[Rfam]
RNA: MIR6274 microRNA precursor family
RNA sequence: AGAUAACAUUGUUUUGUUAUUCCCGACCAAUAACAUAAUGAUACAUGAAAAAGUUAUUCUAUGUGUCAUUACGUUAUUGAUCGGAGAUAGCAAAAAGUGUUAUCC
Numbered sequence: 001a002g003a004u005a006a007c008a009u010u011g012u013u014u015u016g017u018u019a020u021u022c023c024c025g026a027c028c029a030a031u032a033a034c035a036u037a038a039u040g041a042u043a044c045a046u047g048a049a050a051a052a053g054u055u056a057u058u059c060u061a062u063g064u065g066u067c068a069u070u071a072c073g074u075u076a077u078u079g080a081u082c083g084g085a086g087a088u089a090g091c092a093a094a095a096a097g098u099g100u101u102a103u104c105c
Base pairs, nucleotide, nucleotide: 002104003103004102005101012095013094014093015092016091017090018089019088020087023084024083025082026081028079029078030077031076032075033074034073036071037070038069039068040067041066042065043064044063045062046061047060049058050057
Dot-bracket structure: .((((......(((((((((..((((.(((((((.((((((((((((.((......)).)))))))))))).))))))).))))..))))))))).....)))).